[Rfam]
RNA: Listeria sRNA rliD
Organism: Listeria fleischmannii
RNA sequence: CUGUUAGAGGGAAAAAAUCUCCUGGUCUAGGUUUUUUGGAACCUACUGUUGCGGUUAACACGACUGUAUCACCGUAACGUACGAGUGCGGCACCGCUAGCUUGUUUAGCUAAUUGCCCUACUUCGAUUUGCAAUUUUUUACCUGCGAGUUCUGUCUGAAAUACUUGUUUUUCCGACAUAAAUCAUUCUCCUUUUUUAGAGAACGUUUUUCUUUACCAUGCAUAAGAAUGCUUCAUGCACACCUCAAAUGUGAGGCACGCAUAAAUCCAAAAACCUACUAUAAAGUGUUAUUUUUUUGCUUUUUAGUACGUUUUUGGAUUCAUG
Numbered sequence: 001c002u003g004u005u006a007g008a009g010g011g012a013a014a015a016a017a018u019c020u021c022c023u024g025g026u027c028u029a030g031g032u033u034u035u036u037u038g039g040a041a042c043c044u045a046c047u048g049u050u051g052c053g054g055u056u057a058a059c060a061c062g063a064c065u066g067u068a069u070c071a072c073c074g075u076a077a078c079g080u081a082c083g084a085g086u087g088c089g090g091c092a093c094c095g096c097u098a099g100c101u102u103g104u105u106u107a108g109c110u111a112a113u114u115g116c117c118c119u120a121c122u123u124c125g126a127u128u129u130g131c132a133a134u135u136u137u138u139u140a141c142c143u144g145c146g147a148g149u150u151c152u153g154u155c156u157g158a159a160a161u162a163c164u165u166g167u168u169u170u171u172c173c174g175a176c177a178u179a180a181a182u183c184a185u186u187c188u189c190c191u192u193u194u195u196u197a198g199a200g201a202a203c204g205u206u207u208u209u210c211u212u213u214a215c216c217a218u219g220c221a222u223a224a225g226a227a228u229g230c231u232u233c234a235u236g237c238a239c240a241c242c243u244c245a246a247a248u249g250u251g252a253g254g255c256a257c258g259c260a261u262a263a264a265u266c267c268a269a270a271a272a273c274c275u276a277c278u279a280u281a282a283a284g285u286g287u288u289a290u291u292u293u294u295u296u297g298c299u300u301u302u303u304a305g306u307a308c309g310u311u312u313u314u315g316g317a318u319u320c321a322u323g
Stems, first nucleotide, its partner, number of pairs: 003255003009250001014213003027079001030043005047068003051064001054061002102204005109198004122158002125155003130150001136144001165177004218238003259323003263319011276306003